[Rfam]
RNA: Microsporidia small subunit ribosomal RNA, nucleotides 480 to 824
RNA sequence: CGAUUAAAAGGUCCGUAGUCUGCCUAGCCAACUGGUGUAUAAAACAUCCGAUCAAGGGGUGGAAUGUCCCAGAACGGUAGAGGAUGAGGAGCGGCCAGGGGCCAGUCUAUUAGGCAGCUAGAGGUGAAAUUCGAUGACCUGCCUAGGAGAAACUGAGGCGAAAGCGCUGGCCAGGGGCGAGUCCGAUGAUCAAGGACGUAGGCUGGAGUAUCGAAUACGAUUAGAUACCGUAGUAGUUCCAGCAGUUAACGAUGCUUACGCCCUGUUACGAGUGUGACGGGGACGAGAAAUCUAGAGUAGAGCUACGGGGAGAGUACGCGCGCAAGCGAUAAAUUUAAAGGAAAU
Numbered sequence: 001c002g003a004u005u006a007a008a009a010g011g012u013c014c015g016u017a018g019u020c021u022g023c024c025u026a027g028c029c030a031a032c033u034g035g036u037g038u039a040u041a042a043a044a045c046a047u048c049c050g051a052u053c054a055a056g057g058g059g060u061g062g063a064a065u066g067u068c069c070c071a072g073a074a075c076g077g078u079a080g081a082g083g084a085u086g087a088g089g090a091g092c093g094g095c096c097a098g099g100g101g102c103c104a105g106u107c108u109a110u111u112a113g114g115c116a117g118c119u120a121g122a123g124g125u126g127a128a129a130u131u132c133g134a135u136g137a138c139c140u141g142c143c144u145a146g147g148a149g150a151a152a153c154u155g156a157g158g159c160g161a162a163a164g165c166g167c168u169g170g171c172c173a174g175g176g177g178c179g180a181g182u183c184c185g186a187u188g189a190u191c192a193a194g195g196a197c198g199u200a201g202g203c204u205g206g207a208g209u210a211u212c213g214a215a216u217a218c219g220a221u222u223a224g225a226u227a228c229c230g231u232a233g234u235a236g237u238u239c240c241a242g243c244a245g246u247u248a249a250c251g252a253u254g255c256u257u258a259c260g261c262c263c264u265g266u267u268a269c270g271a272g273u274g275u276g277a278c279g280g281g282g283a284c285g286a287g288a289a290a291u292c293u294a295g296a297g298u299a300g301a302g303c304u305a306c307g308g309g310g311a312g313a314g315u316a317c318g319c320g321c322g323c324a325a326g327c328g329a330u331a332a333a334u335u336u337a338a339a340g341g342a343a344a345u
Stems, first nucleotide, its partner, number of pairs: 001307002011197004018190003088184003092179002095176002100172006106150002110146008121132003158165002202243006212236001216232004254303003257299003261282009285292002309336003319328003
Dot-bracket structure: ((........((((...(((...................................................................(((.((.((...((((((((..((((((((...(((......)))......))))))))..)).......((....)).))))))..)).))..)))...)))...))))....((((((....(...((((.........))))...).))))))..........((((((.(((((((((....)))))))))..((....))....))).)))..)).(((.......(((....))).....))).........